[Rfam]
The record is a 297-nucleotide sequence from Pomacea canaliculata, which matches "Metazoan signal recognition particle RNA" in Rfam. About the family: The signal recognition particle (SRP) is a universally conserved ribonucleoprotein. Its Rfam clan is "SRP clan".

RNA sequence: GCUGGGAGUUGUGGCGUGCUCCUGUAAUCUAGCUACUUGGAGGCCGAGAGUGGGGACGAUUUGAGGGCGGGAGUUCUGUCAGCAGGCGUACCAUGUCGAUCGGGUGUCCGCGCUAAGCCCGGCAUCAAUAUGGGCCCCUGGGGGGAGCUCUUGGGGUCCAGGUUGUCUAACGAGAGACGAACCGGCUCAGGGUGGAAACACAGCAGGCAAAAGUCUCCGUGUCGUGCAGUAGCGGGAUUGCACCUGUGAAUGGGCGUCUGUUGGCAGCCCGUCCGAUAGAAUCGGACUAACCCUUUU
Numbered sequence: 001g002c003u004g005g006g007a008g009u010u011g012u013g014g015c016g017u018g019c020u021c022c023u024g025u026a027a028u029c030u031a032g033c034u035a036c037u038u039g040g041a042g043g044c045c046g047a048g049a050g051u052g053g054g055g056a057c058g059a060u061u062u063g064a065g066g067g068c069g070g071g072a073g074u075u076c077u078g079u080c081a082g083c084a085g086g087c088g089u090a091c092c093a094u095g096u097c098g099a100u101c102g103g104g105u106g107u108c109c110g111c112g113c114u115a116a117g118c119c120c121g122g123c124a125u126c127a128a129u130a131u132g133g134g135c136c137c138c139u140g141g142g143g144g145g146a147g148c149u150c151u152u153g154g155g156g157u158c159c160a161g162g163u164u165g166u167c168u169a170a171c172g173a174g175a176g177a178c179g180a181a182c183c184g185g186c187u188c189a190g191g192g193u194g195g196a197a198a199c200a201c202a203g204c205a206g207g208c209a210a211a212a213g214u215c216u217c218c219g220u221g222u223c224g225u226g227c228a229g230u231a232g233c234g235g236g237a238u239u240g241c242a243c244c245u246g247u248g249a250a251u252g253g254g255c256g257u258c259u260g261u262u263g264g265c266a267g268c269c270c271g272u273c274c275g276a277u278a279g280a281a282u283c284g285g286a287c288u289a290a291c292c293c294u295u296u297u
Stems, first nucleotide, its partner, number of pairs: 001044003004023006028041003046295003050291002053288002057284006065274007076267013091253004096248001101246007108236002111234005117227002120224006126165004131160008140151004166172001174217005185208003192201003
Source information
A search with the family's covariance model found it, with a score of 263 bits. The base pairs follow the family's consensus structure, which is taken from published work. The source organism's lineage runs through Eukaryota, Opisthokonta, Eumetazoa, Spiralia and Pomacea.